Rfam assigns this 129-nucleotide RNA sequence from Sciurus vulgaris to the family "Small nucleolar RNA SNORA30/SNORA37 family". The match comes from Rfam's covariance-model search (108 bits). It is annotated as an H/ACA-box small nucleolar RNA. The base pairs follow the family's consensus structure, which was predicted with RNAfold. Rfam 15.1 lists 407 matches to the family in 132 species. Rfam links the family to the GO terms RNA processing and nucleolus. On this family, see Huttenhofer et al., EMBO J 2001: "RNomics: an experimental approach that identifies 201 candidates for novel, small, non-messenger RNAs in mouse".
[Rfam]
RNA sequence: CUAGCACUUUCACAGAUCCUCCCCUAGCAGUGGGGCCAGGAUUUGGUAGCUGGUGCUGAGAGAAAACCCUUGAUUGCAUCCUUGCCCCUGGUACUGUAGCAGUGGCAGCUGUUACUCUUUGGAACACGG
Number, nucleotide and partner (000 for none) at each position: 001c000002u000003a057004g056005c055006a054007c053008u052009u000010u000011c000012a000013c045014a044015g043016a000017u041018c040019c039020u038021c000022c035023c034024c033025u032026a000027g000028c000029a000030g000031u000032g025033g024034g023035g022036c000037c000038a020039g019040g018041a017042u000043u015044u014045g013046g000047u000048a000049g000050c000051u000052g008053g007054u006055g005056c004057u003058g000059a000060g000061a000062g000063a000064a000065a000066a000067c000068c122069c121070u000071u000072g117073a116074u000075u114076g113077c000078a112079u111080c000081c000082u108083u107084g106085c105086c104087c000088c102089u101090g100091g000092u000093a000094c000095u000096g000097u000098a000099g000100c090101a089102g088103u000104g086105g085106c084107a083108g082109c000110u000111g079112u078113u076114a075115c000116u073117c072118u000119u000120u000121g069122g068123a000124a000125c000126a000127c000128g000129g000